The family of this 85-nucleotide RNA from Macaca mulatta is "mir-571 microRNA precursor family".

RNA sequence: AGUAAAACCAAGCUUGGUGCCCCAUUUCCUUAUCUGUAGCCAUGUCUGUGGACCCUUGAGUUGGCCACCUGGGUGGGGGCCUGCU
Numbered sequence: 001a002g003u004a005a006a007a008c009c010a011a012g013c014u015u016g017g018u019g020c021c022c023c024a025u026u027u028c029c030u031u032a033u034c035u036g037u038a039g040c041c042a043u044g045u046c047u048g049u050g051g052a053c054c055c056u057u058g059a060g061u062u063g064g065c066c067a068c069c070u071g072g073g074u075g076g077g078g079g080c081c082u083g084c085u
Base pairs, nucleotide, nucleotide: 001085002084003083004082008078009077012074013073014072015071016070017069018067019066022064023063024062026060027059028058033052034051035050036049037048038047039046

Pairs were carried over by alignment from the consensus structure, which was predicted with RNAalifold.